[Rfam]
RNA sequence: CCACCGAGUAGAAGCGGUUAGCGCCCUGUCGGCGGCCAUCGAGGCCGACCCAGCGGCGCGGGACAUUGCUCCGACG
Numbered sequence: 001c002c003a004c005c006g007a008g009u010a011g012a013a014g015c016g017g018u019u020a021g022c023g024c025c026c027u028g029u030c031g032g033c034g035g036c037c038a039u040c041g042a043g044g045c046c047g048a049c050c051c052a053g054c055g056g057c058g059c060g061g062g063a064c065a066u067u068g069c070u071c072c073g074a075c076g
Base pairs, nucleotide, nucleotide: 006071007070008069009068010067015061018063019062021059022058023057024056025055027053